[Rfam]
RNA sequence: CCUGUGGACCGUUAUACAAACGAAAGUAGUUUUUUAAACGAAAUUGGAUGGGAUGAAGCAGGAA
Numbered sequence: 001c002c003u004g005u006g007g008a009c010c011g012u013u014a015u016a017c018a019a020a021c022g023a024a025a026g027u028a029g030u031u032u033u034u035u036a037a038a039c040g041a042a043a044u045u046g047g048a049u050g051g052g053a054u055g056a057a058g059c060a061g062g063a064a
Stems, first nucleotide, its partner, number of pairs: 001062005009051005021046003029039003
A member of the RNA family "RAGATH-18 RNA", 64 nucleotides long.
By type it is a small RNA.
About the family: Actinobacteria, Firmicutes, Fusobacteria, Thermotogae (1 example).
It is one of the family's seed sequences.